[Rfam]
RNA sequence: AAAAUAGAUAGAGGCGCGGGAGCGACUACAUCAGCUGGAGUCGGCAGACACCUGACAGCUGGUUUCAGCAAUUCCGCCGAACUGCAGUCUUAGGCAUAGGGCUGUGGUGGGCUUAUGGAGAAAAUCCAUAAGACUGUCUACCAUCAGUAGAUGUGCUAUCAUUAUU
Numbered sequence: 001a002a003a004a005u006a007g008a009u010a011g012a013g014g015c016g017c018g019g020g021a022g023c024g025a026c027u028a029c030a031u032c033a034g035c036u037g038g039a040g041u042c043g044g045c046a047g048a049c050a051c052c053u054g055a056c057a058g059c060u061g062g063u064u065u066c067a068g069c070a071a072u073u074c075c076g077c078c079g080a081a082c083u084g085c086a087g088u089c090u091u092a093g094g095c096a097u098a099g100g101g102c103u104g105u106g107g108u109g110g111g112c113u114u115a116u117g118g119a120g121a122a123a124a125u126c127c128a129u130a131a132g133a134c135u136g137u138c139u140a141c142c143a144u145c146a147g148u149a150g151a152u153g154u155g156c157u158a159u160c161a162u163u164a165u166u
Stems, first nucleotide, its partner, number of pairs: 007160005016077006024069001030063008081108012109135002112132008137151005
The family of this 166-nucleotide RNA from [Clostridium] innocuum is "Lysine riboswitch aptamer". Rfam's curators write: Riboswitches are metabolite binding domains within certain messenger RNAs that serve as precision sensors for their corresponding targets. Allosteric rearrangement of mRNA structure is mediated by ligand binding, and this results in modulation of gene expression. This family includes riboswitches that sense lysine in a number of genes involved in lysine metabolism, including lysC. The base pairs follow the family's consensus structure, which is taken from published work. It scores 77 bits against the family's covariance model.